[Rfam]
RNA sequence: GAGGGAGGGUCGCCUCAAGGACUGUCUAACCUGAGAAUGGUGAAACAUAGAGGUCAAUCUCAGGUCCGUCAGCCCGUGAGACGCUGCCUCCAA
Numbered sequence: 001g002a003g004g005g006a007g008g009g010u011c012g013c014c015u016c017a018a019g020g021a022c023u024g025u026c027u028a029a030c031c032u033g034a035g036a037a038u039g040g041u042g043a044a045a046c047a048u049a050g051a052g053g054u055c056a057a058u059c060u061c062a063g064g065u066c067c068g069u070c071a072g073c074c075c076g077u078g079a080g081a082c083g084c085u086g087c088c089u090c091c092a093a
Stems, first nucleotide, its partner, number of pairs: 005090003009085001011083002014080003019075002022072003026068001029065008038056002
Dot-bracket structure: ....(((.(.((.(((..((.(((.(..((((((((.((...............)).))))))))..).))).))..))).)).)..)))...
Annotation
A member of the RNA family "mir-1388 microRNA precursor family" from Salvator merianae, 93 nucleotides long. Rfam links the family to the GO terms miRNA-mediated post-transcriptional gene silencing and RISC complex. The match comes from Rfam's covariance-model search (82 bits). Taxonomically the source falls in Salvator (Eukaryota, Euteleostomi, Sarcopterygii, Teiioidea). A reference for the family is Murchison et al. (2008), "Conservation of small RNA pathways in platypus", Genome Res.